A member of the RNA family "tRNA" from Brevundimonas subvibrioides, 73 nucleotides long.
NCBI's taxonomy places the organism under Bacteria, Pseudomonadota, Caulobacteraceae, Brevundimonas, Brevundimonas subvibrioides.
It is annotated as a transfer RNA.
It scores 67 bits against the family's covariance model.
RNA sequence: GCCGCUUUAGCUCAGCUGGUAGAGCAUCGCAUUCGUAAUGCGGGGGUCAGGUGUUCGAGUCACCUAAGCGGCA
Numbered sequence: 001g002c003c004g005c006u007u008u009a010g011c012u013c014a015g016c017u018g019g020u021a022g023a024g025c026a027u028c029g030c031a032u033u034c035g036u037a038a039u040g041c042g043g044g045g046g047u048c049a050g051g052u053g054u055u056c057g058a059g060u061c062a063c064c065u066a067a068g069c070g071g072c073a
Stems, first nucleotide, its partner, number of pairs: 001072007010025004027043005049065005